Rfam assigns this 75-nucleotide RNA from Streptomyces formicae to the family "ASpks TB sRNA". The match comes from Rfam's covariance-model search (82 bits). On this family, see Arnvig and Young, Mol Microbiol 2009: "Identification of small RNAs in Mycobacterium tuberculosis". Pairs were carried over by alignment from the consensus structure, which is taken from published work. The source organism's lineage runs through Bacteria, Bacillati, Actinomycetes, Streptomycetaceae and Streptomyces.
RNA sequence: CUUCAACGAGCCGAGCCACAGCGGCUGUUCGGCCGUGUGCUCCUUGCCGUACGUCGCGAGCAGCGCCUGCGCCUC
Dot-bracket structure: .............((((.....)))).....((....((...(((.(.(....).).)))...))...)).....